Rfam assigns this 111-nucleotide RNA from Penicillium olsonii to the family "tRNA". It scores 49 bits against the family's covariance model. The organism belongs to Penicillium, within Eukaryota. Pairs were carried over by alignment from the consensus structure, which is taken from published work.
[Rfam]
RNA sequence: GCCUUUAUGGUCUAGUUGGUUAUGACGUCGGUCUCAUACCUUUCAGUAUAUGACAUUCCUGGUAACAGGAUUGAUAUCCGAAGGUCUCCAGUUCGAACCUGGAUAAGGGCA
Numbered sequence: 001g002c003c004u005u006u007a008u009g010g011u012c013u014a015g016u017u018g019g020u021u022a023u024g025a026c027g028u029c030g031g032u033c034u035c036a037u038a039c040c041u042u043u044c045a046g047u048a049u050a051u052g053a054c055a056u057u058c059c060u061g062g063u064a065a066c067a068g069g070a071u072u073g074a075u076a077u078c079c080g081a082a083g084g085u086c087u088c089c090a091g092u093u094c095g096a097a098c099c100u101g102g103a104u105a106a107g108g109g110c111a
Stems, first nucleotide, its partner, number of pairs: 001110007010026003028081004087103005
Dot-bracket structure: (((((((..(((...........))).((((..............................................)))).....(((((.......)))))))))))).